The record is a 77-nucleotide RNA from Crocodylus porosus, which matches "Mammalian CPEB3 ribozyme" in Rfam. Its family is annotated with RNA nuclease activity in the Gene Ontology. The organism belongs to Crocodylus, within Eukaryota.
[Rfam]
RNA sequence: GGUUGAGCGUUUAAGGCCACGGCAGAAGCACUCAUGGCGUGGCCUUGUCAGAUUCCAACGAAUCUGCAAAUUCUGCU
Number, nucleotide and partner (000 for none) at each position: 001g000002g000003u000004u000005g000006a000007g000008c000009g000010u000011u000012u000013a000014a045015g044016g043017c042018c041019a000020c000021g077022g076023c075024a074025g073026a072027a071028g040029c039030a000031c000032u000033c000034a000035u000036g000037g000038c000039g029040u028041g018042g017043c016044c015045u014046u000047g000048u000049c066050a065051g064052a063053u062054u061055c060056c000057a000058a000059c000060g055061a054062a053063u052064c051065u050066g049067c000068a000069a000070a000071u027072u026073c025074u024075g023076c022077u021